[Rfam]
This 64-nucleotide RNA sequence from Anolis carolinensis belongs to the Rfam family "Selenocysteine insertion sequence 1". The family's consensus secondary structure is taken from published work. Rfam's curators write: The incorporation of selenocysteine into a protein sequence is directed by an in-frame UGA codon (usually a stop codon) within the coding region of the mRNA. Selenoprotein mRNAs contain a conserved secondary structure in the 3' UTR that is required for the distinction of UGA stop from UGA selenocysteine. By type it is a cis-regulatory element.

RNA sequence: UUUGCAUUCAUGAAAACAGAAGCCGAAACUAUGACCUAGGGGCUUUUGUUUGAUAUAUUGCAGC
Numbered sequence: 001u002u003u004g005c006a007u008u009c010a011u012g013a014a015a016a017c018a019g020a021a022g023c024c025g026a027a028a029c030u031a032u033g034a035c036c037u038a039g040g041g042g043c044u045u046u047u048g049u050u051u052g053a054u055a056u057a058u059u060g061c062a063g064c
Base pairs, nucleotide, nucleotide: 002063003062004061005060015050016049017048018047019046020045021044022043023042024041029039030038031037
Lineage of the source: Eukaryota > Opisthokonta > Bifurcata > Iguania > Anolis.